[Rfam]
RNA sequence: UGCCUUUGUGUUGCCCAUUCAUUCCCAUAUGAAAUGAAUGUGGUGUCAAAAAAGGCAGACAAGAAUUCUUGCUUAAACUGUCUAAGGAGCUGGUUAUUUGCCUUUCUCCCUGUUUUUGCAAGGACAAAA
Numbered sequence: 001u002g003c004c005u006u007u008g009u010g011u012u013g014c015c016c017a018u019u020c021a022u023u024c025c026c027a028u029a030u031g032a033a034a035u036g037a038a039u040g041u042g043g044u045g046u047c048a049a050a051a052a053a054g055g056c057a058g059a060c061a062a063g064a065a066u067u068c069u070u071g072c073u074u075a076a077a078c079u080g081u082c083u084a085a086g087g088a089g090c091u092g093g094u095u096a097u098u099u100g101c102c103u104u105u106c107u108c109c110c111u112g113u114u115u116u117u118g119c120a121a122g123g124a125c126a127a128a129a
Stems, first nucleotide, its partner, number of pairs: 002056006009048002012045004016040008068122004074118004085111003088107002092102002
RNA: Small nucleolar RNA SNORA13